[Rfam]
RNA sequence: UAAGGUCUUCAGGGCAGGGUGAAAUUCCCUACCGGUGGUAAAGCCCACGAGCUAAUUUUUAGCAUGAUUCGGUGAAAUUCCGAGGCCGACAGUAAAGUCUGGAUGGAAGAAGAUGAGU
Numbered sequence: 001u002a003a004g005g006u007c008u009u010c011a012g013g014g015c016a017g018g019g020u021g022a023a024a025u026u027c028c029c030u031a032c033c034g035g036u037g038g039u040a041a042a043g044c045c046c047a048c049g050a051g052c053u054a055a056u057u058u059u060u061a062g063c064a065u066g067a068u069u070c071g072g073u074g075a076a077a078u079u080c081c082g083a084g085g086c087c088g089a090c091a092g093u094a095a096a097g098u099c100u101g102g103a104u105g106g107a108a109g110a111a112g113a114u115g116a117g118u
Base pairs, nucleotide, nucleotide: 005114006113007112008111009110010109017029018028019027031098032097033088034087035048036047037046038045043086044085053062068084069083070082071081072080090101091100092099
Dot-bracket structure: ....((((((......(((.......))).[[((((((....[[))))....(........).....(((((.......)))))]])).(((....]]))).......))))))....

A member of the RNA family "FMN riboswitch aptamer (RFN element)" from Clostridium intestinale, 118 nucleotides long. The base pairs follow the family's consensus structure, which is taken from published work.